[Rfam]
RNA sequence: GAUGUUGCGGUGAUGACAUUAUUGUGGACUAGAGUUUCUGAUUGGGGCUCUUCACCCUAAUUUGACGACAGACCCUUGGCUGUCUGAGCUCUAUU
Numbered sequence: 001g002a003u004g005u006u007g008c009g010g011u012g013a014u015g016a017c018a019u020u021a022u023u024g025u026g027g028a029c030u031a032g033a034g035u036u037u038c039u040g041a042u043u044g045g046g047g048c049u050c051u052u053c054a055c056c057c058u059a060a061u062u063u064g065a066c067g068a069c070a071g072a073c074c075c076u077u078g079g080c081u082g083u084c085u086g087a088g089c090u091c092u093a094u095u
Base pairs, nucleotide, nucleotide: 001095002094003093004092007089008088035067037065038064042060043059044058045057046056047055
This 95-nucleotide RNA sequence from Papaver nudicaule belongs to the Rfam family "Small nucleolar RNA Z157/R69/R10". Rfam links the family to the GO terms nucleolus and RNA processing. It is annotated as a C/D-box small nucleolar RNA. It scores 70 bits against the family's covariance model. The base pairs follow the family's consensus structure, which was predicted with PFOLD. The source organism's lineage runs through Eukaryota, Mesangiospermae, Ranunculales, Papaveroideae and Papaver.